[Rfam]
RNA sequence: CUAUUACCAAACCCUAUCUUCACCUCCACGUGGUCACCGCUGGGAGCUCUUUUUUAACGAAAAGCUGCAGACAGGGAAGG
Numbered sequence: 001c002u003a004u005u006a007c008c009a010a011a012c013c014c015u016a017u018c019u020u021c022a023c024c025u026c027c028a029c030g031u032g033g034u035c036a037c038c039g040c041u042g043g044g045a046g047c048u049c050u051u052u053u054u055u056a057a058c059g060a061a062a063a064g065c066u067g068c069a070g071a072c073a074g075g076g077a078a079g080g
Stems, first nucleotide, its partner, number of pairs: 013080003017076004022034003045066004050061002053059001
RNA: drz-agam-1 ribozyme